[Rfam]
Rfam assigns this 466-nucleotide RNA sequence from Botryotinia convoluta to the family "RNase MRP". Gene Ontology terms of the family: rRNA processing, ribonuclease MRP activity and ribonuclease MRP complex. For this family Rfam cites "Inventory and analysis of the protein subunits of the ribonucleases P and MRP provides further evidence of homology between the yeast and human enzymes" (Rosenblad et al., Nucleic Acids Res, 2006). Pairs were carried over by alignment from the consensus structure, which is taken from published work. Lineage of the source: Eukaryota > Ascomycota > Leotiomycetes > Sclerotiniaceae > Botryotinia. RNase MRP is an enzymatically active ribonucleoprotein with two distinct roles in eukaryotes. In mitochondria it plays a direct role in the initiation of mitochondrial DNA replication. In the nucleus it is involved in precursor rRNA processing, where it cleaves the internal transcribed spacer 1 between 18S and 5.8S rRNAs. A search with the family's covariance model found it, with a score of 115 bits.

RNA sequence: UUCUCGCUCAAAGAAUCGCAUUCGAAGCACACAAACAGAAAUAUCUUCAUCGAUGUUUCAAUCUACUUUUAUGCUUUGGGAGAAAGUCCCCGGACACCCUUCUUUCUAAAAGUUAGGACUGCGGAAACGCGCCGCCAUAGAAGCACUUGCGGCUUCUCUUCUACCAAUUCUUUACCUUCAAUUUCAUCCAUCCUUUUGCCGUUAUUACUGUUGCCACGAGGCUUCUUGAAAAUUGGAUUCGGAGCAUGGGAGACCACAUGGAUGAAGAUAUGAGUCCGAGCUCCUGUGUAAUGUUUCCAAUUGACUUGGAGAAGAGUGGUGAUGGGAGGUAGAAGACAUGUUCUUGAUUGGGUUGGGAGUGUUAAUGGUAGUCGAGGCUUUUCGUCGAGAUCGAUAGUUAUGCGAUUGCUUUCCUUCGCUGCAAAGCUGGGAAAGUAACUCGAUGGGGCUUAUUCUUGAUGCGAGA
Numbered sequence: 001u002u003c004u005c006g007c008u009c010a011a012a013g014a015a016u017c018g019c020a021u022u023c024g025a026a027g028c029a030c031a032c033a034a035a036c037a038g039a040a041a042u043a044u045c046u047u048c049a050u051c052g053a054u055g056u057u058u059c060a061a062u063c064u065a066c067u068u069u070u071a072u073g074c075u076u077u078g079g080g081a082g083a084a085a086g087u088c089c090c091c092g093g094a095c096a097c098c099c100u101u102c103u104u105u106c107u108a109a110a111a112g113u114u115a116g117g118a119c120u121g122c123g124g125a126a127a128c129g130c131g132c133c134g135c136c137a138u139a140g141a142a143g144c145a146c147u148u149g150c151g152g153c154u155u156c157u158c159u160u161c162u163a164c165c166a167a168u169u170c171u172u173u174a175c176c177u178u179c180a181a182u183u184u185c186a187u188c189c190a191u192c193c194u195u196u197u198g199c200c201g202u203u204a205u206u207a208c209u210g211u212u213g214c215c216a217c218g219a220g221g222c223u224u225c226u227u228g229a230a231a232a233u234u235g236g237a238u239u240c241g242g243a244g245c246a247u248g249g250g251a252g253a254c255c256a257c258a259u260g261g262a263u264g265a266a267g268a269u270a271u272g273a274g275u276c277c278g279a280g281c282u283c284c285u286g287u288g289u290a291a292u293g294u295u296u297c298c299a300a301u302u303g304a305c306u307u308g309g310a311g312a313a314g315a316g317u318g319g320u321g322a323u324g325g326g327a328g329g330u331a332g333a334a335g336a337c338a339u340g341u342u343c344u345u346g347a348u349u350g351g352g353u354u355g356g357g358a359g360u361g362u363u364a365a366u367g368g369u370a371g372u373c374g375a376g377g378c379u380u381u382u383c384g385u386c387g388a389g390a391u392c393g394a395u396a397g398u399u400a401u402g403c404g405a406u407u408g409c410u411u412u413c414c415u416u417c418g419c420u421g422c423a424a425a426g427c428u429g430g431g432a433a434a435g436u437a438a439c440u441c442g443a444u445g446g447g448g449c450u451u452a453u454u455c456u457u458g459a460u461g462c463g464a465g466a
Stems, first nucleotide, its partner, number of pairs: 002466006008459004014407006022080001023078006038059007084451003088448004120131004279379003287364002291360001295358004307351001309349002334344003409435006